[Rfam]
RNA sequence: AAAAUAUAUUGGGAUGGAGUUCCCGUUUAAAUGCGUAAAUGCUGAUGACUCCUACAAAAUA
Numbered sequence: 001a002a003a004a005u006a007u008a009u010u011g012g013g014a015u016g017g018a019g020u021u022c023c024c025g026u027u028u029a030a031a032u033g034c035g036u037a038a039a040u041g042c043u044g045a046u047g048a049c050u051c052c053u054a055c056a057a058a059a060u061a
Stems, first nucleotide, its partner, number of pairs: 010025004016052006033042002

Background
The record is a 61-nucleotide sequence from Clostridium tarantellae, which matches "Fluoride riboswitch aptamer (crcB RNA motif)" in Rfam. Taxonomically the source falls in Clostridium (Bacteria, Bacillati, Bacillota, Eubacteriales).